RNA sequence: CGAUGAGGUAGAGGCGCAAAUAAUAUUAGUAGACAAUUGGAGUAUGACAUCGAUGAAGAUUGUUGAAAGGAUUAUUUGCCGAAGCGUAAUGAAGGUCAAAUUCAUUAUUGCUGGGAUGUUUUCUGAAUAAGAGGCAUACUGUCAUGCUUGUUUUAUGUGCAUGGAGAACUACUGAUCAG
Numbered sequence: 001c002g003a004u005g006a007g008g009u010a011g012a013g014g015c016g017c018a019a020a021u022a023a024u025a026u027u028a029g030u031a032g033a034c035a036a037u038u039g040g041a042g043u044a045u046g047a048c049a050u051c052g053a054u055g056a057a058g059a060u061u062g063u064u065g066a067a068a069g070g071a072u073u074a075u076u077u078g079c080c081g082a083a084g085c086g087u088a089a090u091g092a093a094g095g096u097c098a099a100a101u102u103c104a105u106u107a108u109u110g111c112u113g114g115g116a117u118g119u120u121u122u123c124u125g126a127a128u129a130a131g132a133g134g135c136a137u138a139c140u141g142u143c144a145u146g147c148u149u150g151u152u153u154u155a156u157g158u159g160c161a162u163g164g165a166g167a168a169c170u171a172c173u174g175a176u177c178a179g
Stems, first nucleotide, its partner, number of pairs: 007173005016079009032064007083112004087107007113140002116137007142164006

The record is a 179-nucleotide RNA from Ornithinibacillus bavariensis, which matches "Lysine riboswitch aptamer" in Rfam. Gene Ontology term of the family: lysine biosynthetic process. Rfam's curators write: Riboswitches are metabolite binding domains within certain messenger RNAs that serve as precision sensors for their corresponding targets.